[Rfam]
RNA sequence: CUUACUAAGCCUCUCAACGAUGCUCAAACCUGGAGGU
Numbered sequence: 001c002u003u004a005c006u007a008a009g010c011c012u013c014u015c016a017a018c019g020a021u022g023c024u025c026a027a028a029c030c031u032g033g034a035g036g037u
Base pairs, nucleotide, nucleotide: 001036002035003034005032008024009023010022

Overview: abiF RNA: a 37-nucleotide RNA. The family's consensus secondary structure is taken from published work. It is one of the family's seed sequences. It is annotated as a small RNA. Rfam 15.1 lists 282 matches to the family in 274 species. Rfam's curators write: Actinobacteria, Bacteroidetes, Clostridia, Proteobacteria, one Clostridia phage.